[Rfam]
RNA sequence: GGCUUUCUUCGCGGCGGAGCUCGACCGCCCAUCGAAGUGAUUGUCGCCUUCAUUGAUGACAAUCGUCACGAGUUCGGAGUCGAGCCAAUCGUGCGCGCCCUGUCCGGGACUGCGGCACGGAUUGCUGUG
Numbered sequence: 001g002g003c004u005u006u007c008u009u010c011g012c013g014g015c016g017g018a019g020c021u022c023g024a025c026c027g028c029c030c031a032u033c034g035a036a037g038u039g040a041u042u043g044u045c046g047c048c049u050u051c052a053u054u055g056a057u058g059a060c061a062a063u064c065g066u067c068a069c070g071a072g073u074u075c076g077g078a079g080u081c082g083a084g085c086c087a088a089u090c091g092u093g094c095g096c097g098c099c100c101u102g103u104c105c106g107g108g109a110c111u112g113c114g115g116c117a118c119g120g121a122u123u124g125c126u127g128u129g
Stems, first nucleotide, its partner, number of pairs: 013029005075129002078126002086124002089121002091118003
ALIL pseudoknot: a 129-nucleotide RNA sequence from Brevibacterium luteolum. The family's consensus secondary structure is taken from published work. The match comes from Rfam's covariance-model search (60 bits). Lineage of the source: Bacteria > Bacillati > Actinomycetota > Brevibacteriaceae > Brevibacterium.